[Rfam]
RNA sequence: AUAUAUACUGAGUGGCCAGAUUAUGAUGAUCUCUGAAGGAAUAAUAAUCUGGCCACUCAGUGUAUAU
Numbered sequence: 001a002u003a004u005a006u007a008c009u010g011a012g013u014g015g016c017c018a019g020a021u022u023a024u025g026a027u028g029a030u031c032u033c034u035g036a037a038g039g040a041a042u043a044a045u046a047a048u049c050u051g052g053c054c055a056c057u058c059a060g061u062g063u064a065u066a067u
Stems, first nucleotide, its partner, number of pairs: 004064014019049006026042002
RNA: mir-9256 microRNA precursor family